Notes:
The record is a 248-nucleotide RNA from Ktedonosporobacter rubrisoli, which matches "HNH endonuclease-associated RNA and ORF (HEARO) RNA" in Rfam. The organism belongs to Ktedonosporobacter, within Bacteria. Rfam classes the family as a non-coding RNA gene. Pairs were carried over by alignment from the consensus structure, which is taken from published work. On this family, see Weinberg et al., Nature 2009: "Exceptional structured noncoding RNAs revealed by bacterial metagenome analysis".
RNA sequence: AUCAAGUAUCUCACGUCUGAAAGGGCGGGCAUGAAUGUAGCGGGGUUAGAGCCUCAAAAUGGGCAUGCCCGGACUUGACAAGUCUCAGCCCUAUGGGAAAUUAUCGGGCUACGAUAGGAGCGAAUACAGAGGUACCUUUGGGUGCGUGGCCAGCCUGAAGCGCUACUGUCAGUGGUUAAACAGAUAGACAAGGUUCGAGUCAGGGCCACUGACAAACCGUUCCCUAUCCUUGACGAGGCCACCAUCAC
Numbered sequence: 001a002u003c004a005a006g007u008a009u010c011u012c013a014c015g016u017c018u019g020a021a022a023g024g025g026c027g028g029g030c031a032u033g034a035a036u037g038u039a040g041c042g043g044g045g046u047u048a049g050a051g052c053c054u055c056a057a058a059a060u061g062g063g064c065a066u067g068c069c070c071g072g073a074c075u076u077g078a079c080a081a082g083u084c085u086c087a088g089c090c091c092u093a094u095g096g097g098a099a100a101u102u103a104u105c106g107g108g109c110u111a112c113g114a115u116a117g118g119a120g121c122g123a124a125u126a127c128a129g130a131g132g133u134a135c136c137u138u139u140g141g142g143u144g145c146g147u148g149g150c151c152a153g154c155c156u157g158a159a160g161c162g163c164u165a166c167u168g169u170c171a172g173u174g175g176u177u178a179a180a181c182a183g184a185u186a187g188a189c190a191a192g193g194u195u196c197g198a199g200u201c202a203g204g205g206c207c208a209c210u211g212a213c214a215a216a217c218c219g220u221u222c223c224c225u226a227u228c229c230u231u232g233a234c235g236a237g238g239c240c241a242c243c244a245u246c247a248c
Base pairs, nucleotide, nucleotide: 002078003077004076005075006074007073010029011028014025016024017023030067031066032065033064082234083233084232087110088109089108090107091106113228114227115226116225117224118223122222123221124220125219132166133165136160137159138158139157140156141155142154143153146242147241148240149239150238151237168213169212170211171210172209173208174207175206176205181203183201184200185199187196188195
Dot-bracket structure: .((((((..((..(.((.....)))..))((((..............................)))).....))))))...(((..(((((..............)))))..((((((...((((......((..((((((((..[[[[[[.))))))))....)).(((((((((....(.(((.((......))..))).).))))))))).....))))))))))...)))..]]]]]]......